[Rfam]
Nucleotides: 210
Stems, first nucleotide, its partner, number of pairs: 004207007017029003031190002033180002035097004101155002160176005182193003
Number, partner (000 for none) and nucleotide at each position: 001000a002000g003000c004207u005206u006205c007204c008203u009202u010201c011000g012000g013000g014000g015000u016000c017029a018028g019027g020000u021000g022000a023000a024000a025000u026000u027019c028018c029017u030000a031190a032189c033180c034179g035097g036096c037095g038094g039000u040000g041000a042000u043000c044000g045000g046000g047000a048000c049000g050000g051000c052000a053000c054000a055000g056000a057000u058000a059000g060000a061000u062000c063000g064000g065000a066000c067000a068000a069000c070000c071000g072000a073000a074000a075000u076000u077000c078000u079000g080000u081000g082000c083000c084000u085000c086000u087000c088000g089000u090000c091000a092000g093000u094038c095037c096036g097035u098000g099000a100000c101155c102154c103000g104000g105000u106000u107000u108000a109000a110000u111000g112000a113000g114000c115000u116000u117000u118000c119000u120000u121000c122000u123000c124000g125000a126000u127000u128000a129000a130000u131000u132000u133000c134000g135000a136000g137000a138000g139000a140000a141000a142000g143000u144000g145000a146000a147000u148000u149000g150000a151000a152000a153000c154102g155101g156000u157000g158000g159000a160176c161175c162174u163173g164172g165000u166000g167000u168000a169000a170000a171000u172164c173163c174162g175161g176160g177000a178000c179034c180033g181000a182193c183192a184191g185000u186000a187000a188000a189032g190031u191184c192183u193182g194000g195000a196000u197000g198000g199000g200000a201010g202009a203008a204007g205006g206005g207004g208000a209000u210000g
Rfam assigns this 210-nucleotide sequence from Paenibacillus sp. FSL H8-0548 to the family "FMN riboswitch aptamer (RFN element)". The source organism's lineage runs through Bacteria, Bacillota, Bacilli, Caryophanales and Paenibacillus. Gene Ontology term of the family: FMN binding.